[Rfam]
Shown here is a 129-nucleotide RNA sequence from Panthera leo, a member of the family "Small nucleolar RNA SNORA40". About the family: The snoRNA ACA 40 belongs to the H/ACA family of snoRNAs and guides the pseudouridylation of 28S rRNA subunit at position U4565. It scores 121 bits against the family's covariance model.

RNA sequence: UGCACUUGUGCUUGUUUUUGUUCAGUUUUGUGGACAAAGACUUAGACCUAAGUGCAGAAAAUAAAUCCUCUUUUGCAACCCAGAACUCAUGGCUCAAUAUGAGUUUUGAUACAUGUAAGAAGGAACAAG
Number, nucleotide and partner (000 for none) at each position: 001u056002g055003c054004a053005c052006u051007u050008g049009u000010g000011c000012u000013u000014g041015u040016u039017u038018u037019u036020g035021u034022u000023c000024a000025g000026u032027u000028u000029u000030g000031u000032g026033g000034a021035c020036a019037a018038a017039g016040a015041c014042u000043u000044a000045g000046a000047c000048c000049u008050a007051a006052g005053u004054g003055c002056a001057g000058a000059a000060a000061a000062u000063a000064a000065a000066u125067c000068c123069u122070c000071u120072u119073u118074u117075g116076c000077a000078a000079c000080c000081c108082a107083g106084a105085a104086c103087u102088c101089a100090u099091g000092g000093c000094u000095c000096a000097a000098u000099a090100u089101g088102a087103g086104u085105u084106u083107u082108g081109a000110u000111a000112c000113a000114u000115g000116u075117a074118a073119g072120a071121a000122g069123g068124a000125a066126c000127a000128a000129g000